A member of the RNA family "Small nucleolar RNA SNORA9" from Neomonachus schauinslandi, 135 nucleotides long. Lineage of the source: Eukaryota > Teleostomi > Eutheria > Boreoeutheria > Neomonachus. Gene Ontology terms of the family: RNA processing and nucleolus. The family's consensus secondary structure was predicted with PFOLD. Clan: SNORA9 clan. Rfam's curators write: ACA9 is a member of the H/ACA class of snoRNA that guide the sites of modification of uridines to pseudouridines.

RNA sequence: UAGCAAGCCUUCCGGCAUGCUUGGGGCUAGGGUGACUCAGUGCAUUCCUGCAGUGCUUGCUAGAAUGUCCUGAAAUGCUUUGAGGCUUUGCCCUGUCCCCCCCUCGGAGCGUGGUCAUAGACAUUUCAGACAGUU
Numbered sequence: 001u002a003g004c005a006a007g008c009c010u011u012c013c014g015g016c017a018u019g020c021u022u023g024g025g026g027c028u029a030g031g032g033u034g035a036c037u038c039a040g041u042g043c044a045u046u047c048c049u050g051c052a053g054u055g056c057u058u059g060c061u062a063g064a065a066u067g068u069c070c071u072g073a074a075a076u077g078c079u080u081u082g083a084g085g086c087u088u089u090g091c092c093c094u095g096u097c098c099c100c101c102c103c104u105c106g107g108a109g110c111g112u113g114g115u116c117a118u119a120g121a122c123a124u125u126u127c128a129g130a131c132a133g134u135u
Base pairs, nucleotide, nucleotide: 003060004059005058006057007056008055018044019043020042023038024037025036027034071128072127073126074125075124086114087113089111090110091109093107094106095105